Alphaproteobacteria transfer-messenger RNA: a 413-nucleotide RNA sequence from Methyloceanibacter sp. Bacterial tmRNA, also known as 10Sa RNA or SsrA, is named for its dual tRNA and mRNA-like properties. Its role is to liberate the mRNA from a stalled ribosome. To accomplish this part of the tmRNA is used as a reading frame that ends in a translation stop signal. The family's RNA type in Rfam is non-coding RNA gene.

[Rfam]
Nucleotides: 413
Base pairs, nucleotide, nucleotide: 041056042055043054044053045052060250061249062248063247064246070244071243072242073240076237085229086228089226090225091224095111096110097109098108099107112211113210114209115208116207117206118205251266252265253264254263256277257276258275260274261273262272376393377392378391379390383410384409385408386407387406388405
Number, partner (000 for none) and nucleotide at each position: 001000u002000a003000u004000c005000u006000u007000u008000u009000u010000u011000u012000u013000g014000c015000c016000g017000c018000c019000a020000u021000a022000g023000a024000g025000g026000c027000u028000u029000a030000u031000a032000u033000a034000g035000a036000u037000u038000c039000c040000u041056g042055u043054c044053g045052g046000c047000g048000c049000a050000a051000g052045c053044c054043g055042g056041c057000u058000a059000u060250g061249g062248c063247g064246a065000u066000a067000a068000a069000u070244a071243g072242c073240c074000u075000u076237c077000g078000u079000a080000a081000u082000a083000a084000a085229c086228c087000a088000u089226u090225c091224g092000g093000a094000c095111c096110c097109g098108g099107g100000g101000g102000c103000g104000g105000u106000a107099c108098c109097c110096g111095g112211c113210g114209c115208c116207u117206c118205c119000a120000c121000c122000a123000c124000u125000c126000a127000g128000a129000a130000g131000c132000c133000u134000g135000a136000g137000g138000u139000c140000a141000g142000a143000a144000g145000c146000c147000a148000g149000a150000u151000c152000a153000a154000a155000c156000g157000u158000u159000u160000a161000a162000g163000a164000c165000a166000u167000a168000u169000c170000c171000g172000g173000u174000u175000c176000c177000u178000g179000g180000c181000u182000u183000g184000u185000g186000a187000u188000u189000u190000c191000c192000g193000g194000u195000u196000u197000u198000c199000u200000g201000a202000a203000a204000u205118g206117g207116g208115g209114g210113c211112g212000a213000a214000a215000u216000a217000g218000g219000a220000u221000c222000g223000a224091c225090g226089a227000g228086g229085g230000u231000g232000u233000a234000a235000a236000g237076g238000u239000c240073g241000u242072g243071c244070u245000u246064u247063c248062g249061c250060c251266c252265g253264g254263c255000a256277u257276g258275g259000u260274u261273c262272c263254g264253c265252c266251g267000u268000u269000a270000u271000c272262g273261g274260g275258c276257c277256a278000a279000c280000c281000a282000u283000a284000u285000a286000g287000u288000u289000g290000c291000c292000a293000a294000u295000g296000a297000c298000a299000a300000c301000u302000a303000u304000g305000c306000g307000g308000a309000g310000g311000c312000u313000a314000u315000c316000g317000c318000u319000g320000c321000g322000u323000a324000a325000g326000c327000g328000g329000c330000g331000c332000g333000a334000c335000g336000c337000c338000u339000a340000a341000a342000c343000c344000u345000c346000a347000a348000g349000u350000c351000c352000u353000a354000u355000c356000c357000u358000c359000u360000u361000c362000g363000c364000a365000g366000g367000g368000g369000c370000u371000a372000g373000g374000c375000g376393c377392g378391g379390u380000u381000u382000c383410g384409g385408a386407g387406g388405g389000c390379a391378c392377c393376g394000g395000g396000c397000a398000a399000c400000a401000g402000a403000a404000g405388c406387c407386c408385u409384c410383c411000a412000c413000u
Background: NCBI's taxonomy places the organism under Bacteria, Pseudomonadati, Pseudomonadota, Hyphomicrobiales, Methyloceanibacter. A search with the family's covariance model found it, with a score of 271 bits.